[Rfam]
RNA sequence: UAAUAACGCUGUAUUUUUCUAAAGACAGCAGGUACAAAUGUGUAAAAGGUGUUUGCCUUGCCUGCCGAGGAGAAAUCAUAACCUGAUUCAUAUUUGAAUUGUUAUGCCUUUCUUCGCGGUUUUGCGGGGAAAGGCUUUUUGUAUAAUCAA
Numbered sequence: 001u002a003a004u005a006a007c008g009c010u011g012u013a014u015u016u017u018u019c020u021a022a023a024g025a026c027a028g029c030a031g032g033u034a035c036a037a038a039u040g041u042g043u044a045a046a047a048g049g050u051g052u053u054u055g056c057c058u059u060g061c062c063u064g065c066c067g068a069g070g071a072g073a074a075a076u077c078a079u080a081a082c083c084u085g086a087u088u089c090a091u092a093u094u095u096g097a098a099u100u101g102u103u104a105u106g107c108c109u110u111u112c113u114u115c116g117c118g119g120u121u122u123u124g125c126g127g128g129g130a131a132a133g134g135c136u137u138u139u140u141g142u143a144u145a146a147u148c149a150a
Stems, first nucleotide, its partner, number of pairs: 028065006034041002106135013
Ribosomal protein L10 leader: a 150-nucleotide sequence from [Clostridium] methylpentosum.